Rfam assigns this 434-nucleotide RNA sequence from Corynebacterium argentoratense to the family "Bacterial RNase P class A". The family's RNA type in Rfam is ribozyme. The family's consensus secondary structure is taken from published work. About the family: Ribonuclease P (RNase P) is a ubiquitous endoribonuclease, found in archaea, bacteria and eukarya as well as chloroplasts and mitochondria. Its best characterised activity is the generation of mature 5'-ends of tRNAs by cleaving the 5'-leader elements of precursor-tRNAs. Cellular RNase Ps are ribonucleoproteins. RNA from bacterial RNase Ps retains its catalytic activity in the absence of the protein subunit, i.e. it is a ribozyme. Isolated eukaryotic and archaeal RNase P RNA has not been shown to retain its catalytic function, but is still essential for the catalytic activity of the holoenzyme. Although the archaeal and eukaryotic holoenzyme s have a much greater protein content than the bacterial ones, the RNA cores from all the three lineages are homologous -- helices corresponding to P1, P2, P3, P4, and P10/11 are common to all cellular RNase P RNAs. Yet, there is considerable sequence variation, particularly among the eukaryotic RNAs. Identified in Yersinia as Ysr151/RnpB.
[Rfam]
RNA sequence: UGAGUUAGCCAGGGCGAACGCGAGUCACGUACCCCUGCGAGGUGCCCCUUCGGGGUAUCCCGCAGACGGCGUGUUUACUCGAGGAAAGUCCGGACUCCACAGAGCACGGUGGUCACUAACGGUGACCCAGGGUGACCUGCGGGACAGUGCCACAGAAAACAAACCGCCCACGGUGGAAACACGUGGGUAAGGGUGAAAAGGUGCGGUAAGAGCGCACCAGCACCUCAGGUGACUGAGGUGGCUAGGUAAACCCCACCGGGAGCAAGGCUAAAGGGCGCACCACCGCGGUGUGCCUGCAUGGAUCAGGCUGCUCGUCUACCGUAUCCAUGGGUGAGCCGCUCGAGGCCGCAUGCCGGCCCUAGAUGGAUGUUCGCCACCGUCAGCACUACGUAUGCUGACGGGAACAAAAUCCGGCUUAUCGGCUAACUCAUUCG
Numbered sequence: 001u002g003a004g005u006u007a008g009c010c011a012g013g014g015c016g017a018a019c020g021c022g023a024g025u026c027a028c029g030u031a032c033c034c035c036u037g038c039g040a041g042g043u044g045c046c047c048c049u050u051c052g053g054g055g056u057a058u059c060c061c062g063c064a065g066a067c068g069g070c071g072u073g074u075u076u077a078c079u080c081g082a083g084g085a086a087a088g089u090c091c092g093g094a095c096u097c098c099a100c101a102g103a104g105c106a107c108g109g110u111g112g113u114c115a116c117u118a119a120c121g122g123u124g125a126c127c128c129a130g131g132g133u134g135a136c137c138u139g140c141g142g143g144a145c146a147g148u149g150c151c152a153c154a155g156a157a158a159a160c161a162a163a164c165c166g167c168c169c170a171c172g173g174u175g176g177a178a179a180c181a182c183g184u185g186g187g188u189a190a191g192g193g194u195g196a197a198a199a200g201g202u203g204c205g206g207u208a209a210g211a212g213c214g215c216a217c218c219a220g221c222a223c224c225u226c227a228g229g230u231g232a233c234u235g236a237g238g239u240g241g242c243u244a245g246g247u248a249a250a251c252c253c254c255a256c257c258g259g260g261a262g263c264a265a266g267g268c269u270a271a272a273g274g275g276c277g278c279a280c281c282a283c284c285g286c287g288g289u290g291u292g293c294c295u296g297c298a299u300g301g302a303u304c305a306g307g308c309u310g311c312u313c314g315u316c317u318a319c320c321g322u323a324u325c326c327a328u329g330g331g332u333g334a335g336c337c338g339c340u341c342g343a344g345g346c347c348g349c350a351u352g353c354c355g356g357c358c359c360u361a362g363a364u365g366g367a368u369g370u371u372c373g374c375c376a377c378c379g380u381c382a383g384c385a386c387u388a389c390g391u392a393u394g395c396u397g398a399c400g401g402g403a404a405c406a407a408a409a410u411c412c413g414g415c416u417u418a419u420c421g422g423c424u425a426a427c428u429c430a431u432u433c434g
Stems, first nucleotide, its partner, number of pairs: 001430010011419001013375007021081005027075001086417003090414005095262004102313004107258005112126005127141001128139004142253002147251002149247003164192002166188006173182003200218006220242001221240008266337004305317004344358005